[Rfam]
RNA sequence: GCAUCGAACCCACCCACACGUCCGGCAGGAGCGGGGGACCCAGGUUUGCCGCCGGUCCGGUCUCCGGAGCGGCUCGGGGUGAAGCCGCGUGCGCCGCGGCCGGGCAUCUCCUGCCCGAACCCGACAGCUCACCUCGCAGGCGAAGGAGAGGAACU
Numbered sequence: 001g002c003a004u005c006g007a008a009c010c011c012a013c014c015c016a017c018a019c020g021u022c023c024g025g026c027a028g029g030a031g032c033g034g035g036g037g038a039c040c041c042a043g044g045u046u047u048g049c050c051g052c053c054g055g056u057c058c059g060g061u062c063u064c065c066g067g068a069g070c071g072g073c074u075c076g077g078g079g080u081g082a083a084g085c086c087g088c089g090u091g092c093g094c095c096g097c098g099g100c101c102g103g104g105c106a107u108c109u110c111c112u113g114c115c116c117g118a119a120c121c122c123g124a125c126a127g128c129u130c131a132c133c134u135c136g137c138a139g140g141c142g143a144a145g146g147a148g149a150g151g152a153a154c155u
Stems, first nucleotide, its partner, number of pairs: 002142001004140002010029002031137006041076001077122003085099004102116004

Rfam assigns this 155-nucleotide RNA from Streptomyces purpureus to the family "c-di-AMP riboswitch aptamer (ydaO/yuaA leader)". The match comes from Rfam's covariance-model search (59 bits). This family represents a conserved RNA structure found upstream of the ydaO and yuaA genes in Bacillus subtilis and related genes in other bacteria.